[Rfam]
RNA sequence: GCGGAGGUUUAGCUCAGUGGUUACUUCUCAGUACUCGUUACACUGUCUCCCUAUCGGUCCGCGGGCCCGGGGUACGAACCACGGGCGCUGUCUUCCGUCUUU
Numbered sequence: 001g002c003g004g005a006g007g008u009u010u011a012g013c014u015c016a017g018u019g020g021u022u023a024c025u026u027c028u029c030a031g032u033a034c035u036c037g038u039u040a041c042a043c044u045g046u047c048u049c050c051c052u053a054u055c056g057g058u059c060c061g062c063g064g065g066c067c068c069g070g071g072g073u074a075c076g077a078a079c080c081a082c083g084g085g086c087g088c089u090g091u092c093u094u095c096c097g098u099c100u101u102u
Stems, first nucleotide, its partner, number of pairs: 002097006012086004017082004025078003

A member of the RNA family "Vault RNA" from Echeneis naucrates, 102 nucleotides long.
Taxonomically the source falls in Echeneis (Eukaryota, Vertebrata, Actinopterygii, Eurypterygia).
It scores 62 bits against the family's covariance model.
This family of RNAs are found as part of the enigmatic vault ribonucleoprotein complex. The complex consists of a major vault protein (MVP), two minor vault proteins (VPARP and TEP1), and several small untranslated RNA molecules. It has been suggested that the vault complex is involved in drug resistance.